Rfam assigns this 302-nucleotide RNA from a Hyphomonadaceae bacterium to the family "permuted transfer-messenger RNA". On this family, see Williams and Bartel, RNA 1996: "Phylogenetic analysis of tmRNA secondary structure". Rfam classes the family as a non-coding RNA gene. The family's consensus secondary structure is taken from published work. A search with the family's covariance model found it, with a score of 123 bits. Its family is annotated with RNA catabolic process in the Gene Ontology.

RNA sequence: GGCGAUAAACGCGCAGAGAUAGGCGGAUCGGACCCGGGUGCGAUGCCCGGCGGCUCCACCAGCCUUCGCUCGCUUCGCGAGCUACGGCUUGGCAAGCCAGCCUUCGCUUCGGCGGUGGACGGCUUGUCUGGGCGAAGCUGCAAAGCAGCGGAGACCGAACCUCAUUUGGGUUCGUGUUGAGGGGCCGAAAUAGGAUCGACGGACGUUGAAGGCUGAUGCUUUUGCUCGGGUGGUCCCGUCACAGGCCAAACAGCAUAGUUGCAAAUGACAACAACGCUGAAGAGUUCGCCCUCGCUGCGUAA
Number, nucleotide and partner (000 for none) at each position: 001g226002g225003c224004g223005a222006u000007a000008a000009a000010c000011g000012c000013g000014c000015a000016g214017a000018g000019a000020u000021a000022g000023g000024c205025g204026g000027a000028u202029c201030g200031g000032a000033c000034c050035c049036g048037g047038g046039u000040g000041c000042g000043a000044u000045g000046c038047c037048c036049g035050g034051c187052g186053g185054c184055u183056c182057c181058a000059c000060c000061a000062g000063c000064c000065u000066u000067c000068g000069c000070u000071c000072g000073c000074u000075u000076c000077g000078c000079g000080a000081g000082c000083u000084a000085c000086g000087g000088c000089u000090u000091g000092g000093c000094a000095a000096g000097c000098c000099a000100g000101c000102c000103u000104u000105c000106g000107c000108u000109u000110c000111g000112g000113c000114g000115g000116u000117g000118g000119a000120c000121g000122g000123c000124u000125u000126g000127u000128c000129u000130g000131g000132g000133c000134g000135a000136a000137g000138c000139u000140g000141c000142a000143a000144a000145g000146c000147a000148g000149c000150g000151g000152a000153g000154a000155c000156c000157g000158a000159a000160c000161c000162u000163c000164a000165u000166u000167u000168g000169g000170g000171u000172u000173c000174g000175u000176g000177u000178u000179g000180a000181g057182g056183g055184g054185c053186c052187g051188a000189a000190a000191u000192a000193g000194g000195a000196u000197c000198g000199a000200c030201g029202g028203a000204c025205g024206u000207u000208g000209a000210a000211g000212g000213c000214u016215g000216a000217u000218g000219c000220u000221u000222u005223u004224g003225c002226u001227c238228g237229g236230g235231u000232g000233g000234u000235c230236c229237c228238g227239u000240c000241a000242c000243a000244g000245g000246c000247c000248a000249a000250a000251c000252a000253g000254c000255a000256u000257a000258g000259u000260u000261g000262c000263a000264a000265a000266u000267g000268a000269c000270a000271a000272c000273a000274a000275c000276g000277c000278u000279g000280a000281a000282g000283a000284g000285u000286u000287c000288g000289c000290c000291c000292u000293c000294g000295c000296u000297g000298c000299g000300u000301a000302a000